STnc250 Hfq binding RNA: a 114-nucleotide RNA sequence from Citrobacter rodentium. NCBI's taxonomy places the organism under Bacteria, Pseudomonadati, Gammaproteobacteria, Citrobacter, Citrobacter rodentium. The literature on the family includes a 2007 paper in Mol Microbiol by Pfeiffer et al., "A small non-coding RNA of the invasion gene island (SPI-1) represses outer membrane protein synthesis from the Salmonella core genome". The base pairs follow the family's consensus structure, which was predicted with WAR.
[Rfam]
Nucleotides: 114
Base pairs, nucleotide, nucleotide: 001013002012003011004010023054025052061072063070064069075108076107077106078105079104080103081102082101083100084099086097087096
Number, partner (000 for none) and nucleotide at each position: 001013g002012a003011a004010g005000u006000g007000a008000u009000g010004c011003u012002u013001c014000g015000u016000a017000a018000a019000u020000a021000a022000a023054u024000u025052u026000c027000u028000g029000g030000a031000a032000a033000g034000g035000c036000a037000u038000c039000c040000a041000a042000a043000u044000a045000a046000c047000a048000g049000a050000c051000c052025a053000u054023a055000c056000c057000g058000u059000g060000c061072g062000a063070g064069a065000c066000u067000c068000a069064u070063c071000g072061c073000a074000c075108a076107g077106a078105a079104a080103a081102g082101g083100c084099g085000a086097c087096c088000c089000a090000u091000u092000g093000g094000c095000a096087g097086g098000c099084c100083g101082c102081c103080u104079u105078u106077u107076u108075u109000a110000u111000u112000g113000c114000u